[Rfam]
Record summary
Rfam assigns this 67-nucleotide RNA sequence from Cnephaeus nilssonii to the family "mir-9256 microRNA precursor family". Its family is annotated with miRNA-mediated post-transcriptional gene silencing and RISC complex in the Gene Ontology.

RNA sequence: AGAUAUACUGAGUGGUCAGAUUAUUAUGAUGUCUGAACACAUAAUAAUCUGGCCACUCAGUAUGUAU
Numbered sequence: 001a002g003a004u005a006u007a008c009u010g011a012g013u014g015g016u017c018a019g020a021u022u023a024u025u026a027u028g029a030u031g032u033c034u035g036a037a038c039a040c041a042u043a044a045u046a047a048u049c050u051g052g053c054c055a056c057u058c059a060g061u062a063u064g065u066a067u
Stems, first nucleotide, its partner, number of pairs: 004064014019049010

Annotation: It scores 84 bits against the family's covariance model.